Record summary: mir-3492 microRNA precursor family: a 78-nucleotide sequence from Schistosoma margrebowiei. The family has 2 seed sequences and 21,496 matches in Rfam 15.1.
[Rfam]
RNA sequence: GGCUUUCCGAGUCCGUGCUGAGAUUUCAUCAGACACCAACCCAUUAGGGCUGAUCAGACAUCCAAGAUAAGUGAAGUU
Numbered sequence: 001g002g003c004u005u006u007c008c009g010a011g012u013c014c015g016u017g018c019u020g021a022g023a024u025u026u027c028a029u030c031a032g033a034c035a036c037c038a039a040c041c042c043a044u045u046a047g048g049g050c051u052g053a054u055c056a057g058a059c060a061u062c063c064a065a066g067a068u069a070a071g072u073g074a075a076g077u078u
Stems, first nucleotide, its partner, number of pairs: 002077005008071001011068003016064002020062002022059001024058003028054003